[Rfam]
RNA sequence: ACUACCUGUAAAGGGGAGUAGCGUCAGGUGCAAACCUGAAACAAAGUCGUCAAUACAUGGUGCUAACCAUCGGCUUUGUUGGCAUAGUCACUAUGCUC
Numbered sequence: 001a002c003u004a005c006c007u008g009u010a011a012a013g014g015g016g017a018g019u020a021g022c023g024u025c026a027g028g029u030g031c032a033a034a035c036c037u038g039a040a041a042c043a044a045a046g047u048c049g050u051c052a053a054u055a056c057a058u059g060g061u062g063c064u065a066a067c068c069a070u071c072g073g074c075u076u077u078g079u080u081g082g083c084a085u086a087g088u089c090a091c092u093a094u095g096c097u098c
Stems, first nucleotide, its partner, number of pairs: 025038003040080010057070005081097007
Shown here is a 98-nucleotide RNA from Mesobacillus foraminis, a member of the family "Manganese Mn2+ riboswitch aptamer (yybP-ykoY)".
Rfam 15.1 lists 1,126 matches to the family in 1,062 species.
Its family is annotated with manganese ion binding in the Gene Ontology.
The organism belongs to Mesobacillus, within Bacteria.